A member of the RNA family "Archaeal signal recognition particle RNA" from Halomarina oriensis, 314 nucleotides long. The source organism's lineage runs through Archaea, Methanobacteriati, Methanobacteriota, Halobacteria and Halomarina. For this family Rfam cites "Crystal structure of the ribonucleoprotein core of the signal recognition particle" (Batey et al., Science, 2000).
RNA sequence: UGAUGGACUAGGUCGGGCAGUUAGGCCCUGCCCCUUCCCGCGAUAUGGUCUUCAGCGGGAGCCGAACCACGGGUGCGUCCGGACCGACCGGUGCGGGCCCUGCAAGCCAACGUAGAAGCCUCGUCCUUCGGGGGCGGCGGUCCGGGUCGGCCCAUCUGCAGGGAUGGUUCGACACCGGUUAGUCGUGGACAGUUCGCCAGGCGCGGAAGCGAGCAGCGAAUCCGCGGACAUCCGUCGCUCGAAGGGCCGCGGGGUGGAGACGGUGCGCAGGAUUCCCCGUAUCGGAACGACCGGGCAACCCCGUUCGUCCGUCU
Numbered sequence: 001u002g003a004u005g006g007a008c009u010a011g012g013u014c015g016g017g018c019a020g021u022u023a024g025g026c027c028c029u030g031c032c033c034c035u036u037c038c039c040g041c042g043a044u045a046u047g048g049u050c051u052u053c054a055g056c057g058g059g060a061g062c063c064g065a066a067c068c069a070c071g072g073g074u075g076c077g078u079c080c081g082g083a084c085c086g087a088c089c090g091g092u093g094c095g096g097g098c099c100c101u102g103c104a105a106g107c108c109a110a111c112g113u114a115g116a117a118g119c120c121u122c123g124u125c126c127u128u129c130g131g132g133g134g135c136g137g138c139g140g141u142c143c144g145g146g147u148c149g150g151c152c153c154a155u156c157u158g159c160a161g162g163g164a165u166g167g168u169u170c171g172a173c174a175c176c177g178g179u180u181a182g183u184c185g186u187g188g189a190c191a192g193u194u195c196g197c198c199a200g201g202c203g204c205g206g207a208a209g210c211g212a213g214c215a216g217c218g219a220a221u222c223c224g225c226g227g228a229c230a231u232c233c234g235u236c237g238c239u240c241g242a243a244g245g246g247c248c249g250c251g252g253g254g255u256g257g258a259g260a261c262g263g264u265g266c267g268c269a270g271g272a273u274u275c276c277c278c279g280u281a282u283c284g285g286a287a288c289g290a291c292c293g294g295g296c297a298a299c300c301c302c303g304u305u306c307g308u309c310c311g312u313c314u
Base pairs, nucleotide, nucleotide: 002313003312004311005310006309007308008307011063012062013061015033016032017031018030019029020028037059038058039057040056041055069304070303071302072301073300077296078295079294080293081291088285089284090283091282092281093280094279095278096277097276099271100270101269102268103267106264107263108262111259113257118255119254120253121252122251123250124249125245126244127243128242129241130240131239132238133236134235135234136233137232139229140180142178143177144176145175147172148171149170150169152167153166154165155164156163157162183227184226185225186224187223188222189221193220194219195218196217197216202211203210204209